RNA sequence: ACACGGAGAGGAGGUGGUCCCAAGAAUGAAUUCGUCUUGGACUUGUGAGGUGGCUGUCCGCUAGCCACGAGGCCCGGCUCCACGGAGCCGUUCCUGGUGCAUCAGGACCUGGUGGCGGCGAAUACCCGCAGUCACCCGACCCGCAGGGCGUCGAGCUGUCCACUCGACCCGUGCCUCCCCGCUGGGCUCGCCCGGC
Numbered sequence: 001a002c003a004c005g006g007a008g009a010g011g012a013g014g015u016g017g018u019c020c021c022a023a024g025a026a027u028g029a030a031u032u033c034g035u036c037u038u039g040g041a042c043u044u045g046u047g048a049g050g051u052g053g054c055u056g057u058c059c060g061c062u063a064g065c066c067a068c069g070a071g072g073c074c075c076g077g078c079u080c081c082a083c084g085g086a087g088c089c090g091u092u093c094c095u096g097g098u099g100c101a102u103c104a105g106g107a108c109c110u111g112g113u114g115g116c117g118g119c120g121a122a123u124a125c126c127c128g129c130a131g132u133c134a135c136c137c138g139a140c141c142c143g144c145a146g147g148g149c150g151u152c153g154a155g156c157u158g159u160c161c162a163c164u165c166g167a168c169c170c171g172u173g174c175c176u177c178c179c180c181g182c183u184g185g186g187c188u189c190g191c192c193c194g195g196c
Base pairs, nucleotide, nucleotide: 013058014057015056016055017054018053059120060119061118062117065114067113068112070110072108074106143196144195146193147192148191149190150168151167152166153165154164155163
Dot-bracket structure: ............((((((..................................))))))((((..(.((.(.(.(...............................).).).)))..))))......................((.((((((((((.......)))))).....................)))).))
This 196-nucleotide sequence from Aeromicrobium yanjiei belongs to the Rfam family "Actinobacteria sRNA Ms_IGR-5". The literature on the family includes a 2013 paper in RNA by Li et al., "Identification of small RNAs in Mycobacterium smegmatis using heterologous Hfq". The base pairs follow the family's consensus structure. By type it is a small RNA.